Notes
Methylobacterium-1 RNA: a 102-nucleotide RNA sequence. Pairs were carried over by alignment from the consensus structure, which is taken from published work.

RNA sequence: AAAGUUGGAACCGGUGUCUAAAGAUUGCCAACAAGACAAAGGAAUUAUCACCUUCAAGCGAUGCAGGCAUUAUCCAGUCGGUAAUGUAUCGCUACCGCAGUU
Numbered sequence: 001a002a003a004g005u006u007g008g009a010a011c012c013g014g015u016g017u018c019u020a021a022a023g024a025u026u027g028c029c030a031a032c033a034a035g036a037c038a039a040a041g042g043a044a045u046u047a048u049c050a051c052c053u054u055c056a057a058g059c060g061a062u063g064c065a066g067g068c069a070u071u072a073u074c075c076a077g078u079c080g081g082u083a084a085u086g087u088a089u090c091g092c093u094a095c096c097g098c099a100g101u102u
Base pairs, nucleotide, nucleotide: 004032005031006030007029008028010025012023039054040053041052042051057093058092059091060090061089062088063087064086065085069082070081071080